This 199-nucleotide sequence from Agrilus planipennis belongs to the Rfam family "R2 RNA element". Rfam links the family to the GO term regulation of reverse transcription. The organism belongs to Agrilus, within Eukaryota. About the family: This family represents the 3' UTR region of the R2 retrotransposable element. This family is known to interact with the R2-encoded reverse transcriptase in a reaction known as target primed reverse transcription (TPRT).
[Rfam]
RNA sequence: GGCUAUUAUUAUAAUUAUAUCCAUAUACCAGGCCUGCAUUAUGAAUACUUCGACUGAAGAGGACCCUAGCUGGUCCUAGAGCGGCCUGAGGUAGAGGGGUUUUAGUCGGUAGGUCCGAGGACUCCUUCUCGGGAAUCCGACACUACCCAGUCGUACGGACGGGUGGGUGUAUUUUGAAGAUUUCCCCUCUUCCACGAAA
Numbered sequence: 001g002g003c004u005a006u007u008a009u010u011a012u013a014a015u016u017a018u019a020u021c022c023a024u025a026u027a028c029c030a031g032g033c034c035u036g037c038a039u040u041a042u043g044a045a046u047a048c049u050u051c052g053a054c055u056g057a058a059g060a061g062g063a064c065c066c067u068a069g070c071u072g073g074u075c076c077u078a079g080a081g082c083g084g085c086c087u088g089a090g091g092u093a094g095a096g097g098g099g100u101u102u103u104a105g106u107c108g109g110u111a112g113g114u115c116c117g118a119g120g121a122c123u124c125c126u127u128c129u130c131g132g133g134a135a136u137c138c139g140a141c142a143c144u145a146c147c148c149a150g151u152c153g154u155a156c157g158g159a160c161g162g163g164u165g166g167g168u169g170u171a172u173u174u175u176g177a178a179g180a181u182u183u184c185c186c187c188u189c190u191u192c193c194a195c196g197a198a199a
Stems, first nucleotide, its partner, number of pairs: 049198004090193002093190002096186003105141005114133008143169001145168005